[Rfam]
RNA sequence: GGGGGCGCACCGGUUUCGACGGGGACGUGGAAUCCGGAGUGGCAGGCCGAGGCGCCGCUGGCCUCGUUAAAAGCGGCAACACAGUAAUUGCCAACAACGAUUACGACUACGCUUACGCUGCCUAGGCAACGGAGCAAAUGACCGCGCAAGUCGGUCACGUUGUUCAGGAUCACGCCUGAUAAUCCCGAACAACGACACUUUUCAGGCUGGCGAAAAUCGGCGCUUGCCGGGAUUUUUUCGUGAGAUGUUACCGGCGGGCUUGCUGUACCGCGGCUGAUCAGGGUCUACCGGUAUGGCGAAAAUCAAGCCUGAUCUAAGCCUGUAGAUGCUUCGCGUGGAAUGCUCUCGGACGGGGGUUCAACUCCCCCCGCCUCCACCA
Numbered sequence: 001g002g003g004g005g006c007g008c009a010c011c012g013g014u015u016u017c018g019a020c021g022g023g024g025a026c027g028u029g030g031a032a033u034c035c036g037g038a039g040u041g042g043c044a045g046g047c048c049g050a051g052g053c054g055c056c057g058c059u060g061g062c063c064u065c066g067u068u069a070a071a072a073g074c075g076g077c078a079a080c081a082c083a084g085u086a087a088u089u090g091c092c093a094a095c096a097a098c099g100a101u102u103a104c105g106a107c108u109a110c111g112c113u114u115a116c117g118c119u120g121c122c123u124a125g126g127c128a129a130c131g132g133a134g135c136a137a138a139u140g141a142c143c144g145c146g147c148a149a150g151u152c153g154g155u156c157a158c159g160u161u162g163u164u165c166a167g168g169a170u171c172a173c174g175c176c177u178g179a180u181a182a183u184c185c186c187g188a189a190c191a192a193c194g195a196c197a198c199u200u201u202u203c204a205g206g207c208u209g210g211c212g213a214a215a216a217u218c219g220g221c222g223c224u225u226g227c228c229g230g231g232a233u234u235u236u237u238u239c240g241u242g243a244g245a246u247g248u249u250a251c252c253g254g255c256g257g258g259c260u261u262g263c264u265g266u267a268c269c270g271c272g273g274c275u276g277a278u279c280a281g282g283g284u285c286u287a288c289c290g291g292u293a294u295g296g297c298g299a300a301a302a303u304c305a306a307g308c309c310u311g312a313u314c315u316a317a318g319c320c321u322g323u324a325g326a327u328g329c330u331u332c333g334c335g336u337g338g339a340a341u342g343c344u345c346u347c348g349g350a351c352g353g354g355g356g357u358u359c360a361a362c363u364c365c366c367c368c369c370g371c372c373u374c375c376a377c378c379a
Stems, first nucleotide, its partner, number of pairs: 001375007020348005026342003032336002035333007043322005048066005054077006114133001116131002119128003158194006165187001167185004174207006211240006226259003230255001262297009272285003276314004281308001352368005
Overview:
This 379-nucleotide RNA from Candidatus Desulfovibrio trichonymphae belongs to the Rfam family "transfer-messenger RNA". Rfam's curators write: Bacterial tmRNA, also known as 10Sa RNA or SsrA, is named for its dual tRNA and mRNA-like properties. Its role is to liberate the mRNA from a stalled ribosome. To accomplish this part of the tmRNA is used as a reading frame that ends in a translation stop signal. By type it is a non-coding RNA gene. Taxonomically the source falls in Desulfovibrio (Bacteria, Pseudomonadati, Desulfovibrionia, Desulfovibrionales). It scores 190 bits against the family's covariance model.